[Rfam]
RNA sequence: ACUGAACAGUGUCUGGGCUGAACACUGAACAGUGUCUGGGCUGCAGGACAGAUUCGGACUUCUUCGUUGUUCCUACAAUUUGGACUUCAAAACGGCCUUUUUAAAUCUUGGGCUCCCAUAAGAGUUGUAGGCCUAUGUCUUACCUUUCCAUC
Numbered sequence: 001a002c003u004g005a006a007c008a009g010u011g012u013c014u015g016g017g018c019u020g021a022a023c024a025c026u027g028a029a030c031a032g033u034g035u036c037u038g039g040g041c042u043g044c045a046g047g048a049c050a051g052a053u054u055c056g057g058a059c060u061u062c063u064u065c066g067u068u069g070u071u072c073c074u075a076c077a078a079u080u081u082g083g084a085c086u087u088c089a090a091a092a093c094g095g096c097c098u099u100u101u102u103a104a105a106u107c108u109u110g111g112g113c114u115c116c117c118a119u120a121a122g123a124g125u126u127g128u129a130g131g132c133c134u135a136u137g138u139c140u141u142a143c144c145u146u147u148c149c150a151u152c
Base pairs, nucleotide, nucleotide: 001146003142008141009140011138012137014135015134016133017132018130019129020128022126024125025124026123032119033118034117038116039115040114042112045109046108047107048106051102052101056097057096059095060094066088069085070084071083
RNA: MIR2912 microRNA precursor family
Organism: Populus tomentosa